[Rfam]
RNA sequence: GCCUCCGUAGCUCAGCGGCCAGAGCGCUCGCCUUGUAAGCGAGUGGUCGAGGGUUCGACUCCCUCCGGGGGCU
Dot-bracket structure: (((((((..((((........)))).(((((.......))))).....(((((.......)))))))))))).
A member of the RNA family "tRNA" from Arachnia propionica, 73 nucleotides long. The family's RNA type in Rfam is transfer RNA. NCBI's taxonomy places the organism under Bacteria, Actinomycetes, Propionibacteriales, Propionibacteriaceae, Arachnia. Transfer RNA (tRNA) molecules are approximately 80 nucleotides in length.